[Rfam]
RNA sequence: CUGCAUUCUAAACCCUCCUGGCAGCUCUCUUGGUAGCUUCCAGGAUAAGAAUGAAUGCUAGAGAAAACUGUUGAUUAAUCCAAAAUGCAGAGCUCUUCUCCCGUGGCUCUUCGUUAUUUCACGUCUUCAACAGUU
Numbered sequence: 001c002u003g004c005a006u007u008c009u010a011a012a013c014c015c016u017c018c019u020g021g022c023a024g025c026u027c028u029c030u031u032g033g034u035a036g037c038u039u040c041c042a043g044g045a046u047a048a049g050a051a052u053g054a055a056u057g058c059u060a061g062a063g064a065a066a067a068c069u070g071u072u073g074a075u076u077a078a079u080c081c082a083a084a085a086u087g088c089a090g091a092g093c094u095c096u097u098c099u100c101c102c103g104u105g106g107c108u109c110u111u112c113g114u115u116a117u118u119u120c121a122c123g124u125c126u127u128c129a130a131c132a133g134u135u
Stems, first nucleotide, its partner, number of pairs: 003058004007051001009049001016045006023038003063135002069129002073125002084115004089110002092107002098103001
Small nucleolar RNA SNORA14: a 135-nucleotide sequence from Anhinga anhinga. ACA14 is a member of the H/ACA class of snoRNA that guide the sites of modification of uridines to pseudouridines. NCBI's taxonomy places the organism under Eukaryota, Opisthokonta, Sarcopterygii, Saurischia, Anhinga. The family's RNA type in Rfam is H/ACA-box small nucleolar RNA.